[Rfam]
RNA sequence: UUUAACUUUUGCCAAACUUAAUGUGAGUUAAGGACGGAAAGUUUCAGGUCUCAAAUUUGAGAUGGCUGGGCCGCAAAA
Numbered sequence: 001u002u003u004a005a006c007u008u009u010u011g012c013c014a015a016a017c018u019u020a021a022u023g024u025g026a027g028u029u030a031a032g033g034a035c036g037g038a039a040a041g042u043u044u045c046a047g048g049u050c051u052c053a054a055a056u057u058u059g060a061g062a063u064g065g066c067u068g069g070g071c072c073g074c075a076a077a078a
Base pairs, nucleotide, nucleotide: 012037013036017032018031019030020029021028022027041071042070043069045068046067047066048063049062050061051060052059053058
RNA: c-di-GMP-I riboswitch aptamer